Record summary
MIR394 microRNA precursor family: a 121-nucleotide RNA sequence from Dioscorea zingiberensis. The match comes from Rfam's covariance-model search (72 bits).
[Rfam]
RNA sequence: CCUACAGAGGUCAUUGGCAUUCUGUCCACCUCCAUUAUCAAAGAUCAUAAUUUCCUAUAUGCUGAAUGUGGAGACGGGAAUUAAUUUGGAGUUGGGCAUAGUGCCAACACAUCUCUGUAGG
Numbered sequence: 001c002c003u004a005c006a007g008a009g010g011u012c013a014u015u016g017g018c019a020u021u022c023u024g025u026c027c028a029c030c031u032c033c034a035u036u037a038u039c040a041a042a043g044a045u046c047a048u049a050a051u052u053u054c055c056u057a058u059a060u061g062c063u064g065a066a067u068g069u070g071g072a073g074a075c076g077g078g079a080a081u082u083a084a085u086u087u088g089g090a091g092u093u094g095g096g097c098a099u100a101g102u103g104c105c106a107a108c109a110c111a112u113c114u115c116u117g118u119a120g121g
Stems, first nucleotide, its partner, number of pairs: 011111001014107006023098006030091004
Annotation
A reference for the family is Jones-Rhoades and Bartel (2004), "Computational identification of plant microRNAs and their targets, including a stress-induced miRNA", Mol Cell. Gene Ontology terms of the family: RISC complex and miRNA-mediated post-transcriptional gene silencing. Rfam 15.1 lists 724 matches to the family in 216 species. The source organism's lineage runs through Eukaryota, Streptophyta, Dioscoreales, Dioscoreaceae and Dioscorea.